[Rfam]
RNA sequence: GCGCGUCAUUCAUCCAAUCGCCGUUGAUUCUCAAUCAGCGGCGGUUCAGCAAUUAACGACGCAAAAUGAACAGAUUGCCGGAUUGAUGUUGAAAUCGUUCAAGGUUUCAAUACAAUCUGGUCCUCGACACUU
Numbered sequence: 001g002c003g004c005g006u007c008a009u010u011c012a013u014c015c016a017a018u019c020g021c022c023g024u025u026g027a028u029u030c031u032c033a034a035u036c037a038g039c040g041g042c043g044g045u046u047c048a049g050c051a052a053u054u055a056a057c058g059a060c061g062c063a064a065a066a067u068g069a070a071c072a073g074a075u076u077g078c079c080g081g082a083u084u085g086a087u088g089u090u091g092a093a094a095u096c097g098u099u100c101a102a103g104g105u106u107u108c109a110a111u112a113c114a115a116u117c118u119g120g121u122c123c124u125c126g127a128c129a130c131u132u
Base pairs, nucleotide, nucleotide: 003062004061005060006059007058016046017045018044019043020042021041022040023039024038025037026036027035073125074124077121078120079119082116083115084114085113088111089110090109091108092107094105095104096103
RNA: Caenorhabditis snoRNA ceN38
Organism: Caenorhabditis bovis